[Rfam]
This 66-nucleotide RNA from Prevotellaceae bacterium KH2P17 belongs to the Rfam family "Bacteroidetes FopS (family of paralogous sRNAs)".
The RNA-binding protein RbpB and BTncRNA_FopS sRNA are involved in the post-transcription regulation of polysaccharide utilisation loci (PUL).
Its family is annotated with sRNA-mediated gene silencing in the Gene Ontology.
The organism belongs to Prevotellaceae, within Bacteria.
It scores 78 bits against the family's covariance model.
The family has 12 seed sequences and 822 matches in Rfam 15.1.
RNA sequence: GUGUUUUUCAUAGUAUUAGAUUUAAGGUUAACAAGGUUGGAGUACGGCGGUACUCCUUUUUUUAUG
Numbered sequence: 001g002u003g004u005u006u007u008u009c010a011u012a013g014u015a016u017u018a019g020a021u022u023u024a025a026g027g028u029u030a031a032c033a034a035g036g037u038u039g040g041a042g043u044a045c046g047g048c049g050g051u052a053c054u055c056c057u058u059u060u061u062u063u064a065u066g
Stems, first nucleotide, its partner, number of pairs: 039056007